Background:
This 67-nucleotide RNA from Cricetulus griseus belongs to the Rfam family "mir-290 microRNA precursor family". For this family Rfam cites "Embryonic stem cell-specific MicroRNAs" (Houbaviy et al., Dev Cell, 2003). A search with the family's covariance model found it, with a score of 57 bits. Clan: mir-290 clan.
RNA sequence: GUGAUACUCAAACUAGGGGCUCUUUUGUUUUCCUGGAAGAAAAGUGCCACCAGGCUUUGAGUGUUAC
Number, nucleotide and partner (000 for none) at each position: 001g000002u000003g000004a064005u063006a062007c061008u060009c059010a058011a057012a056013c000014u000015a000016g051017g050018g048019g047020c046021u000022c044023u043024u000025u041026u040027g000028u000029u000030u000031u000032c000033c000034u000035g000036g000037a000038a000039g000040a026041a025042a000043a023044g022045u000046g020047c019048c018049a000050c017051c016052a000053g000054g000055c000056u012057u011058u010059g009060a008061g007062u006063g005064u004065u000066a000067c000